[Rfam]
RNA sequence: GUCAGUAACCCCGCUCACUCAUAGACGGGGCUUGUAAGAGAAAUCUAACAAGCCAUACUGACCAGAUUACUUAGAAAUAAGUAGCCGUUAUCCUAGUCACGACACCCUGAAAUGCGUAGCUAGUUUCCCGCUCUGUCACUUGCAAUUAAACAAAACUAAGGUCACUGGUUUAGUGUUGCAAGUCUAACAAGCUAGGGUAACAAAAUCGAAGCUAACAUCAC
Numbered sequence: 001g002u003c004a005g006u007a008a009c010c011c012c013g014c015u016c017a018c019u020c021a022u023a024g025a026c027g028g029g030g031c032u033u034g035u036a037a038g039a040g041a042a043a044u045c046u047a048a049c050a051a052g053c054c055a056u057a058c059u060g061a062c063c064a065g066a067u068u069a070c071u072u073a074g075a076a077a078u079a080a081g082u083a084g085c086c087g088u089u090a091u092c093c094u095a096g097u098c099a100c101g102a103c104a105c106c107c108u109g110a111a112a113u114g115c116g117u118a119g120c121u122a123g124u125u126u127c128c129c130g131c132u133c134u135g136u137c138a139c140u141u142g143c144a145a146u147u148a149a150a151c152a153a154a155a156c157u158a159a160g161g162u163c164a165c166u167g168g169u170u171u172a173g174u175g176u177u178g179c180a181a182g183u184c185u186a187a188c189a190a191g192c193u194a195g196g197g198u199a200a201c202a203a204a205a206u207c208g209a210a211g212c213u214a215a216c217a218u219c220a221c
Base pairs, nucleotide, nucleotide: 001062002061003060004059005058006057007056010030011029012027013026015024031052032051033050034049065207066206067205068204070081071080072079087201088200089199090198091197092196093195094194095193096192097191102136103135106130109127110126111125112124113123117214118213119212120211121210138183139182140181141180142179143178144177145176146175150174151173153171154170155169156168157167158166
The family of this 221-nucleotide RNA from Tolypothrix sp. NIES-4075 is "HNH endonuclease-associated RNA and ORF (HEARO) RNA". A reference for the family is Weinberg et al. (2009), "Exceptional structured noncoding RNAs revealed by bacterial metagenome analysis", Nature. The match comes from Rfam's covariance-model search (137 bits). It is annotated as a non-coding RNA gene.